RNA: TPP riboswitch aptamer (THI element)
Organism: Mediterraneibacter hominis
RNA sequence: UAAAAAUAACAGGGGAGCUUGCGUGCGAAGCAGGCUGAGAGUAGGCUGAAGCGCCUAGACCCGUAACCUGAUUUGGAUAAUGCCAACGUAGGGAGAAUAUAAACGCAUUUGC
Numbered sequence: 001u002a003a004a005a006a007u008a009a010c011a012g013g014g015g016a017g018c019u020u021g022c023g024u025g026c027g028a029a030g031c032a033g034g035c036u037g038a039g040a041g042u043a044g045g046c047u048g049a050a051g052c053g054c055c056u057a058g059a060c061c062c063g064u065a066a067c068c069u070g071a072u073u074u075g076g077a078u079a080a081u082g083c084c085a086a087c088g089u090a091g092g093g094a095g096a097a098u099a100u101a102a103a104c105g106c107a108u109u110u111g112c
Stems, first nucleotide, its partner, number of pairs: 006100003012062003017035005042057005067092004073086004
Dot-bracket structure: .....(((...(((..(((((.........)))))......(((((......)))))..)))....((((..((((......))))..)))).....)))............